Rfam assigns this 73-nucleotide sequence from Micromonospora inositola to the family "tRNA". Lineage of the source: Bacteria > Actinomycetota > Actinomycetes > Micromonosporales > Micromonospora. The match comes from Rfam's covariance-model search (66 bits). Its family is annotated with triplet codon-amino acid adaptor activity in the Gene Ontology. The base pairs follow the family's consensus structure, which is taken from published work.
RNA sequence: GCCCCGGUGGCUCAGCGGAGAGAGCGCCGCUCUACGAAAGCGGAGAGCCCAGGUUCGAAUCCUGGUCGGGGCA
Numbered sequence: 001g002c003c004c005c006g007g008u009g010g011c012u013c014a015g016c017g018g019a020g021a022g023a024g025c026g027c028c029g030c031u032c033u034a035c036g037a038a039a040g041c042g043g044a045g046a047g048c049c050c051a052g053g054u055u056c057g058a059a060u061c062c063u064g065g066u067c068g069g070g071g072c073a
Base pairs, nucleotide, nucleotide: 001072002071003070004069005068006067007066010025011024012023013022027043028042029041030040031039049065050064051063052062053061